RNA sequence: AUUUAAGUGAAUAGCUUGGCUAUCUCACUUCCCCUCGUUCUCUUGCAGAACUUUGAUUUUAACGAACUUAAAUAAAAGCCCUGUUGUUUAGCGUAUUGUUGCACUUGUCUGGUGGGAUUGUGGCAUUAAUUUGCCUGCUCAUCUAGGCAGUGGACAUAUGCUCAACACUGGGUAUAAUUCUAAUUGAAUACUAUUUUUCAGUUAGAGCGUCGUGUCUCUUGUACGUCUCGGUCACAAUACACGGUUUCGUCCGGUGCGUGGCAAUUCGGGGCACAUCAUGUCUUUCGUGGCUGGUGUGACCGCGCAAGGUGCGCGCGGUACGUA
Numbered sequence: 001a002u003u004u005a006a007g008u009g010a011a012u013a014g015c016u017u018g019g020c021u022a023u024c025u026c027a028c029u030u031c032c033c034c035u036c037g038u039u040c041u042c043u044u045g046c047a048g049a050a051c052u053u054u055g056a057u058u059u060u061a062a063c064g065a066a067c068u069u070a071a072a073u074a075a076a077a078g079c080c081c082u083g084u085u086g087u088u089u090a091g092c093g094u095a096u097u098g099u100u101g102c103a104c105u106u107g108u109c110u111g112g113u114g115g116g117a118u119u120g121u122g123g124c125a126u127u128a129a130u131u132u133g134c135c136u137g138c139u140c141a142u143c144u145a146g147g148c149a150g151u152g153g154a155c156a157u158a159u160g161c162u163c164a165a166c167a168c169u170g171g172g173u174a175u176a177a178u179u180c181u182a183a184u185u186g187a188a189u190a191c192u193a194u195u196u197u198u199c200a201g202u203u204a205g206a207g208c209g210u211c212g213u214g215u216c217u218c219u220u221g222u223a224c225g226u227c228u229c230g231g232u233c234a235c236a237a238u239a240c241a242c243g244g245u246u247u248c249g250u251c252c253g254g255u256g257c258g259u260g261g262c263a264a265u266u267c268g269g270g271g272c273a274c275a276u277c278a279u280g281u282c283u284u285u286c287g288u289g290g291c292u293g294g295u296g297u298g299a300c301c302g303c304g305c306a307a308g309g310u311g312c313g314c315g316c317g318g319u320a321c322g323u324a
Stems, first nucleotide, its partner, number of pairs: 005030005011023005037051005090162005098155003104150002107148006211225003237255002242253003272298007280291003
The record is a 324-nucleotide sequence from Betacoronavirus cameli, which matches "Betacoronavirus 5'UTR" in Rfam. Rfam classes the family as a cis-regulatory element. About the family: The first 150 to 200 nucleotides within the 5' UTR of betacoronaviruses are highly structured and shown to be conserved on a structure level among betacoronaviruses. It has been predicted to contain 3 conserved stem-loops (SL1, SL2 and SL4). Rfam links the family to the GO term viral RNA genome replication. The literature on the family includes a 2004 paper in J Virol by Goebel et al., "The 3' cis-acting genomic replication element of the severe acute respiratory syndrome coronavirus can function in the murine coronavirus genome".